[Rfam]
RNA sequence: CGGAUGGUGCUCAUACUGGCCUGAGGAAUUCAACUGUGACGGUGGCUGGACGAGCUGGCGUUCCGAUCUCUCUUUUGGGACGGGCGUCGGUUUGGCUAUCAGCUCCGACAUGGUGCACUUUCCUUGGUGCCUCCGCCACGACCGACGACACUGGCUACCCGCGGCUGGGGUAAGGUGACAAACUGCUUCGGCAAUUUGUGUUAUAGACCCCGGCGUCGGACAUGGUUUGGCCAGGACGUCGAGCUUGCGGCGCCCGCUCCUUGUGGGCUCGCAUGUUGGCUAGCUUGGCUGCGCCGAUGCUUGCACUGGACAACCAGUACAGGUGACGGUUGUGGUCUUGUCUCUAGUUGGCCUCUGCGAGUUUGGCGCCUAUAGUCUGUGGUGUACUUGUGGGUAGACUAUCCGACCCGUCUUGAAACACGG
Numbered sequence: 001c002g003g004a005u006g007g008u009g010c011u012c013a014u015a016c017u018g019g020c021c022u023g024a025g026g027a028a029u030u031c032a033a034c035u036g037u038g039a040c041g042g043u044g045g046c047u048g049g050a051c052g053a054g055c056u057g058g059c060g061u062u063c064c065g066a067u068c069u070c071u072c073u074u075u076u077g078g079g080a081c082g083g084g085c086g087u088c089g090g091u092u093u094g095g096c097u098a099u100c101a102g103c104u105c106c107g108a109c110a111u112g113g114u115g116c117a118c119u120u121u122c123c124u125u126g127g128u129g130c131c132u133c134c135g136c137c138a139c140g141a142c143c144g145a146c147g148a149c150a151c152u153g154g155c156u157a158c159c160c161g162c163g164g165c166u167g168g169g170g171u172a173a174g175g176u177g178a179c180a181a182a183c184u185g186c187u188u189c190g191g192c193a194a195u196u197u198g199u200g201u202u203a204u205a206g207a208c209c210c211c212g213g214c215g216u217c218g219g220a221c222a223u224g225g226u227u228u229g230g231c232c233a234g235g236a237c238g239u240c241g242a243g244c245u246u247g248c249g250g251c252g253c254c255c256g257c258u259c260c261u262u263g264u265g266g267g268c269u270c271g272c273a274u275g276u277u278g279g280c281u282a283g284c285u286u287g288g289c290u291g292c293g294c295c296g297a298u299g300c301u302u303g304c305a306c307u308g309g310a311c312a313a314c315c316a317g318u319a320c321a322g323g324u325g326a327c328g329g330u331u332g333u334g335g336u337c338u339u340g341u342c343u344c345u346a347g348u349u350g351g352c353c354u355c356u357g358c359g360a361g362u363u364u365g366g367c368g369c370c371u372a373u374a375g376u377c378u379g380u381g382g383u384g385u386a387c388u389u390g391u392g393g394g395u396a397g398a399c400u401a402u403c404c405g406a407c408c409c410g411u412c413u414u415g416a417a418a419c420a421c422g423g
Stems, first nucleotide, its partner, number of pairs: 001405008009395004017129001021127008134384006408423004